[Rfam]
RNA sequence: GCCAGUAACGGAGAUGACAUUCCUCCAUAACCGCCCUUCCGGCUGAUGAUGUCUGCGAGUCC
Numbered sequence: 001g002c003c004a005g006u007a008a009c010g011g012a013g014a015u016g017a018c019a020u021u022c023c024u025c026c027a028u029a030a031c032c033g034c035c036c037u038u039c040c041g042g043c044u045g046a047u048g049a050u051g052u053c054u055g056c057g058a059g060u061c062c
Stems, first nucleotide, its partner, number of pairs: 010026004016053006033043003
The record is a 62-nucleotide RNA sequence from Dickeya dadantii, which matches "Fluoride riboswitch aptamer (crcB RNA motif)" in Rfam. A search with the family's covariance model found it, with a score of 52 bits. The source organism's lineage runs through Bacteria, Pseudomonadota, Gammaproteobacteria, Enterobacterales and Dickeya dadantii. The base pairs follow the family's consensus structure, which is taken from published work.